[Rfam]
RNA: MarS sRNA
Organism: Streptococcus sp. DD10
RNA sequence: AUGCGAUGAGUCGAUUUGCAGUUUAUUGCAUUUUGAAGCACGGGAGGUCAUAACGCAGGAGCGGACCUUGGUAAGUUGUGUGAACCUACUUACCACAUGAAGAUGCCCCUAAAACCCUAGUCUUUGGACUAAGGUUUUUUU
Numbered sequence: 001a002u003g004c005g006a007u008g009a010g011u012c013g014a015u016u017u018g019c020a021g022u023u024u025a026u027u028g029c030a031u032u033u034u035g036a037a038g039c040a041c042g043g044g045a046g047g048u049c050a051u052a053a054c055g056c057a058g059g060a061g062c063g064g065a066c067c068u069u070g071g072u073a074a075g076u077u078g079u080g081u082g083a084a085c086c087u088a089c090u091u092a093c094c095a096c097a098u099g100a101a102g103a104u105g106c107c108c109c110u111a112a113a114a115c116c117c118u119a120g121u122c123u124u125u126g127g128a129c130u131a132a133g134g135u136u137u138u139u140u141u
Stems, first nucleotide, its partner, number of pairs: 012035003017030005042108003045068004054063003069095008096105003113136004118131004
Dot-bracket structure: ...........(((..(((((....)))))..)))......(((((((.....(((....))).))))((((((((...........))))))))(((....))))))....((((.((((......)))).)))).....